Rfam assigns this 81-nucleotide sequence from Caenorhabditis brenneri to the family "SmY spliceosomal RNA".
Rfam 15.1 lists 408 matches to the family in 67 species.
A reference for the family is MacMorris et al. (2007), "A novel family of C. elegans snRNPs contains proteins associated with trans-splicing", RNA.
The family's RNA type in Rfam is spliceosomal small nuclear RNA.
Lineage of the source: Eukaryota > Bilateria > Rhabditida > Rhabditomorpha > Caenorhabditis.
RNA sequence: UAUUCUAAUGAAUACCUCUCAGGGCCUUUUAUAAGACCCAGUGAACAAUUUUUGCAGACCCUCUUCCUUUGGUUGAGGGUG
Numbered sequence: 001u002a003u004u005c006u007a008a009u010g011a012a013u014a015c016c017u018c019u020c021a022g023g024g025c026c027u028u029u030u031a032u033a034a035g036a037c038c039c040a041g042u043g044a045a046c047a048a049u050u051u052u053u054g055c056a057g058a059c060c061c062u063c064u065u066c067c068u069u070u071g072g073u074u075g076a077g078g079g080u081g
Stems, first nucleotide, its partner, number of pairs: 022039003026035003058080006066072002